[Rfam]
RNA sequence: AAAGAGAGAUAUGCAGGAACAUACCUCUCUAGUAGCCACUACUAGUUAUAAGAACUAGCGGCUUACUGAGUUAUUGGUUUUAUUUCAAACGCUUAACCGUUCAGCUCCUCAAAGCUUA
Numbered sequence: 001a002a003a004g005a006g007a008g009a010u011a012u013g014c015a016g017g018a019a020c021a022u023a024c025c026u027c028u029c030u031a032g033u034a035g036c037c038a039c040u041a042c043u044a045g046u047u048a049u050a051a052g053a054a055c056u057a058g059c060g061g062c063u064u065a066c067u068g069a070g071u072u073a074u075u076g077g078u079u080u081u082a083u084u085u086c087a088a089a090c091g092c093u094u095a096a097c098c099g100u101u102c103a104g105c106u107c108c109u110c111a112a113a114g115c116u117u118a
Stems, first nucleotide, its partner, number of pairs: 003030006010023004031067004035062003042058006068107005073101001075099005
The family of this 118-nucleotide sequence from Enterococcus faecalis is "Enterococcus sRNA 66". The family's RNA type in Rfam is antisense RNA. On this family, see Innocenti et al., RNA 2015: "Whole-genome mapping of 5' RNA ends in bacteria by tagged sequencing: a comprehensive view in Enterococcus faecalis". Pairs were carried over by alignment from the consensus structure, which was predicted with RNAfold. The source organism's lineage runs through Bacteria, Bacillati, Enterococcaceae, Enterococcus and Enterococcus faecalis. The sequence is in the family's curated seed alignment.